[Rfam]
RNA: TD-1 RNA
RNA sequence: CUUUUUAUGCCGAGUUUGCGUUGCAAACUCGUUAUCUAUUGCGCUUUCUCAACUCUCGUUUGCGAAAGCGCGAAAAAACUUUUUCGCAAGUUGACACUUGCUUCAAAAGUUUUUUAGGAGG
Dot-bracket structure: ...........((((((((...))))))))..........((((((((...............)))))))).(((((((((((..((((((....))))))...)))))))))))......